[Rfam]
RNA sequence: UUGAAUUAGGACAUUACUCCGCAGACCGUGGGUGCGAAAGCAUAACGUGAUUACAACCUACCGAGGAUUCAUAUAUUCUUCAUUUAGCAAAGUUGAUUUUGUUAUGUAAUGAGAUAUACACCUCUUCGUCGGUUGCGGAGAGGUUUUAUUUUUCAGUUA
Numbered sequence: 001u002u003g004a005a006u007u008a009g010g011a012c013a014u015u016a017c018u019c020c021g022c023a024g025a026c027c028g029u030g031g032g033u034g035c036g037a038a039a040g041c042a043u044a045a046c047g048u049g050a051u052u053a054c055a056a057c058c059u060a061c062c063g064a065g066g067a068u069u070c071a072u073a074u075a076u077u078c079u080u081c082a083u084u085u086a087g088c089a090a091a092g093u094u095g096a097u098u099u100u101g102u103u104a105u106g107u108a109a110u111g112a113g114a115u116a117u118a119c120a121c122c123u124c125u126u127c128g129u130c131g132g133u134u135g136c137g138g139a140g141a142g143g144u145u146u147u148a149u150u151u152u153u154c155a156g157u158u159a
Stems, first nucleotide, its partner, number of pairs: 028061006034041002120144010
The family of this 159-nucleotide sequence from Clostridium grantii is "Ribosomal protein L10 leader". By type it is a cis-regulatory leader. For this family Rfam cites "Diverse mechanisms for regulating ribosomal protein synthesis in Escherichia coli" (Zengel and Lindahl, Prog Nucleic Acid Res Mol Biol, 1994). Rfam describes the family as follows. This family is a putative r-protein leader autoregulatory structure found in B. subtilis and other low-GC Gram-positive bacteria. Lineage of the source: Bacteria > Bacillati > Clostridia > Clostridium > Clostridium grantii.